The family of this 143-nucleotide RNA from Castor canadensis is "Small nucleolar RNA SNORA48".
The base pairs follow the family's consensus structure, which was predicted with RNAalifold.
Its family is annotated with nucleolus and RNA processing in the Gene Ontology.
The match comes from Rfam's covariance-model search (50 bits).
Rfam describes the family as follows. The snoRNA ACA 48 has been identified to guide pseudouridylation of the residue U3797 in the 28S rRNA subunit.
The source organism's lineage runs through Eukaryota, Deuterostomia, Vertebrata, Gnathostomata and Castor.

RNA sequence: UUCCCCUGGCAAUGGGCAAACACCACCCCAUUAGUGGUGUUGCUCUUAUCUCAGUCAGGGGCAGAGGAGAUGACAGUCCUGUGUUCAUCCUAGCCUAAUGCCUGGGUCAGUGGCCAAAGCUGUUUCAUGCCUAGGGCACAUUU
Numbered sequence: 001u002u003c004c005c006c007u008g009g010c011a012a013u014g015g016g017c018a019a020a021c022a023c024c025a026c027c028c029c030a031u032u033a034g035u036g037g038u039g040u041u042g043c044u045c046u047u048a049u050c051u052c053a054g055u056c057a058g059g060g061g062c063a064g065a066g067g068a069g070a071u072g073a074c075a076g077u078c079c080u081g082u083g084u085u086c087a088u089c090c091u092a093g094c095c096u097a098a099u100g101c102c103u104g105g106g107u108c109a110g111u112g113g114c115c116a117a118a119g120c121u122g123u124u125u126c127a128u129g130c131c132u133a134g135g136g137c138a139c140a141u142u143u
Stems, first nucleotide, its partner, number of pairs: 001063001003061006013053003019047002022041001024039004082138005099129001103127003108122002111119001